The record is a 96-nucleotide sequence from Vitis vinifera, which matches "MIR535 microRNA precursor family" in Rfam. Gene Ontology terms of the family: miRNA-mediated post-transcriptional gene silencing and RISC complex. The literature on the family includes a 2010 paper in Nucleic Acids Res by Zeng et al., "Conservation and divergence of microRNAs and their functions in Euphorbiaceous plants".

RNA sequence: GCAAUUGCUUGACAAAGAGAGAGAGCACACUUGUUAGCAUUCAUGUGAGGUAACAUGACUAUGUACAGGUGUGCUUUCUCUCGCUGUCAUACAAUC
Numbered sequence: 001g002c003a004a005u006u007g008c009u010u011g012a013c014a015a016a017g018a019g020a021g022a023g024a025g026c027a028c029a030c031u032u033g034u035u036a037g038c039a040u041u042c043a044u045g046u047g048a049g050g051u052a053a054c055a056u057g058a059c060u061a062u063g064u065a066c067a068g069g070u071g072u073g074c075u076u077u078c079u080c081u082c083g084c085u086g087u088c089a090u091a092c093a094a095u096c
Base pairs, nucleotide, nucleotide: 010089011088012087013086014085017082020079021078023076025074026073027072028071029070030069031068032067033066034065
About this RNA:
Pairs were carried over by alignment from the consensus structure, which was predicted with RNAalifold. It scores 81 bits against the family's covariance model.